[Rfam]
RNA sequence: GCUUCCAGGCCAAAUUGUGGCGUUUAUCGCCGCGUUUCCGAAAGGAAUAGGCUUGGGAGUUUUU
Number, nucleotide and partner (000 for none) at each position: 001g060002c059003u058004u057005c056006c055007a054008g053009g052010c051011c050012a000013a000014a000015u000016u034017g033018u032019g031020g030021c029022g028023u000024u000025u000026a000027u000028c022029g021030c020031c019032g018033c017034g016035u000036u047037u046038c045039c044040g000041a000042a000043a000044g039045g038046a037047a036048u000049a000050g011051g010052c009053u008054u007055g006056g005057g004058a003059g002060u001061u000062u000063u000064u000